[Rfam]
RNA sequence: UCUGGGCAGCGUAGCGACUGUCUGUAACCCGAGCGGGAGUAAGAGAGAUGGGAGCUGGGGCUCUUGCCGAGGACCGCUGGGAUCAUGUCGAAGGCACGUCCACUCGAAGCGUGGAGUCUCUGAUCUGGGCUCCUCGGCGGAAGCCAGGGGAGUCUGGGGAGAUGAUGCGGAGGGCACAGCGUGAGGCGGGCGACCGAGCAGCGAUCACUUCCCGCUCUGCGCAGUCGAGGGACAGCGUGCUUGAAUGCCUGCCAGCGAUCAUCCGAUGUGAGCAGCUUCCUGCAACCUCUCUCUG
Numbered sequence: 001u002c003u004g005g006g007c008a009g010c011g012u013a014g015c016g017a018c019u020g021u022c023u024g025u026a027a028c029c030c031g032a033g034c035g036g037g038a039g040u041a042a043g044a045g046a047g048a049u050g051g052g053a054g055c056u057g058g059g060g061c062u063c064u065u066g067c068c069g070a071g072g073a074c075c076g077c078u079g080g081g082a083u084c085a086u087g088u089c090g091a092a093g094g095c096a097c098g099u100c101c102a103c104u105c106g107a108a109g110c111g112u113g114g115a116g117u118c119u120c121u122g123a124u125c126u127g128g129g130c131u132c133c134u135c136g137g138c139g140g141a142a143g144c145c146a147g148g149g150g151a152g153u154c155u156g157g158g159g160a161g162a163u164g165a166u167g168c169g170g171a172g173g174g175c176a177c178a179g180c181g182u183g184a185g186g187c188g189g190g191c192g193a194c195c196g197a198g199c200a201g202c203g204a205u206c207a208c209u210u211c212c213c214g215c216u217c218u219g220c221g222c223a224g225u226c227g228a229g230g231g232a233c234a235g236c237g238u239g240c241u242u243g244a245a246u247g248c249c250u251g252c253c254a255g256c257g258a259u260c261a262u263c264c265g266a267u268g269u270g271a272g273c274a275g276c277u278u279c280c281u282g283c284a285a286c287c288u289c290u291c292u293c294u295g
Base pairs, nucleotide, nucleotide: 002039003038004023005022006021007020008019009018028037029036030035042294043293044292045291046290047289048288050287051286054283055282057280058279059278060276061275062274064272065271067268071264072263073262075257076256077255078254079253080252082250086244092242093241094240095239096238097237098236099235100231101230103229104228105227106226107225109222110221111220112219113218114217115216116215117214120161121160124158125157126156127155128154129153130152131151132150133149134148135147136145137144138143169212170211171210172209173208178205180203181202182201187196188195189194
The family of this 295-nucleotide sequence from Marchantia polymorpha is "Plant signal recognition particle RNA". The base pairs follow the family's consensus structure, which is taken from published work. Taxonomically the source falls in Marchantia polymorpha (Eukaryota, Streptophytina, Embryophyta, Marchantiaceae).